About this RNA: This 201-nucleotide sequence belongs to the Rfam family "MIR159 microRNA precursor family". Its family is annotated with miRNA-mediated post-transcriptional gene silencing and RISC complex in the Gene Ontology. The family's consensus secondary structure was predicted with WAR.

RNA sequence: UAGAUAUAGAAGGAGAUUCUUUCAGUCCAGUCAUGGAUAGAAAAAGAAGAGGGUAGAAAUAUCUGCCGACUCAUCCAUCCAAACACUCGUGGUAGAGAAACGAUAAAUUUAAACCGCAGUGACUGUGUGAAUGAUGCGGGAGAUAUUUUUGAUCCUUCUUUAUCUGUGUUUGGACUGAAGGGAGCUCCUUCUUUUUCUACA
Numbered sequence: 001u002a003g004a005u006a007u008a009g010a011a012g013g014a015g016a017u018u019c020u021u022u023c024a025g026u027c028c029a030g031u032c033a034u035g036g037a038u039a040g041a042a043a044a045a046g047a048a049g050a051g052g053g054u055a056g057a058a059a060u061a062u063c064u065g066c067c068g069a070c071u072c073a074u075c076c077a078u079c080c081a082a083a084c085a086c087u088c089g090u091g092g093u094a095g096a097g098a099a100a101c102g103a104u105a106a107a108u109u110u111a112a113a114c115c116g117c118a119g120u121g122a123c124u125g126u127g128u129g130a131a132u133g134a135u136g137c138g139g140g141a142g143a144u145a146u147u148u149u150u151g152a153u154c155c156u157u158c159u160u161u162a163u164c165u166g167u168g169u170u171u172g173g174a175c176u177g178a179a180g181g182g183a184g185c186u187c188c189u190u191c192u193u194u195u196u197c198u199a200c201a
Base pairs, nucleotide, nucleotide: 013187014186015185017183018182019181020180023177024176025175026174027173028172029171036164063142064141066139067138068137072133073132074131080125